RNA sequence: UUAACUAGGCCGCUGAAUUCCGAAAGGAAGCGGGGGAAACAAUUUUGGGGUGAAUCCGGUCGAUCGAUCGGUAGGGCAAUCUCUUAAGCCCGAAUCCGACAGCUAACCUCGUAAGUGUUUAAGAGAGGAGUG
Numbered sequence: 001u002u003a004a005c006u007a008g009g010c011c012g013c014u015g016a017a018u019u020c021c022g023a024a025a026g027g028a029a030g031c032g033g034g035g036g037a038a039a040c041a042a043u044u045u046u047g048g049g050g051u052g053a054a055u056c057c058g059g060u061c062g063a064u065c066g067a068u069c070g071g072u073a074g075g076g077c078a079a080u081c082u083c084u085u086a087a088g089c090c091c092g093a094a095u096c097c098g099a100c101a102g103c104u105a106a107c108c109u110c111g112u113a114a115g116u117g118u119u120u121a122a123g124a125g126a127g128g129a130g131u132g
Base pairs, nucleotide, nucleotide: 011117012116013115014114018029019028020027030112031111032110033109034108035107040047041046048097049096050095056071057070058069059068074091075090076089077088
The family of this 132-nucleotide RNA sequence from Effusibacillus dendaii is "c-di-AMP riboswitch aptamer (ydaO/yuaA leader)".
Rfam links the family to the GO terms cyclic-di-AMP binding and regulation of gene expression.
Rfam describes the family as follows. This family represents a conserved RNA structure found upstream of the ydaO and yuaA genes in Bacillus subtilis and related genes in other bacteria.